A member of the RNA family "Small nucleolar RNA SNORA72" from Aquarana catesbeiana, 133 nucleotides long. Taxonomically the source falls in Aquarana (Eukaryota, Opisthokonta, Euteleostomi, Batrachia). The family's consensus secondary structure was predicted with PFOLD. The family's RNA type in Rfam is H/ACA-box small nucleolar RNA. From the family's description: U72 is a member of the H/ACA class of snoRNAs. The snoRNA gene is located in intron 4 of the ribosomal L30 protein gene in human, mouse and chicken.
[Rfam]
RNA sequence: AUGCGAAUAUAUUCUCGCUGGAUUGAUCUGCCGGUGAUCAUUUCAGGCUAGACGUUCGCUAGAAUAAAACUAGUCUUGUGUCCUCAGCACUGGUUAUCCCUACAGUUCUGAUGCUUAAAAGAUAGUUACAUGU
Numbered sequence: 001a002u003g004c005g006a007a008u009a010u011a012u013u014c015u016c017g018c019u020g021g022a023u024u025g026a027u028c029u030g031c032c033g034g035u036g037a038u039c040a041u042u043u044c045a046g047g048c049u050a051g052a053c054g055u056u057c058g059c060u061a062g063a064a065u066a067a068a069a070c071u072a073g074u075c076u077u078g079u080g081u082c083c084u085c086a087g088c089a090c091u092g093g094u095u096a097u098c099c100c101u102a103c104a105g106u107u108c109u110g111a112u113g114c115u116u117a118a119a120a121g122a123u124a125g126u127u128a129c130a131u132g133u
Stems, first nucleotide, its partner, number of pairs: 003059003018046005024040005069126004074122002084111004089106004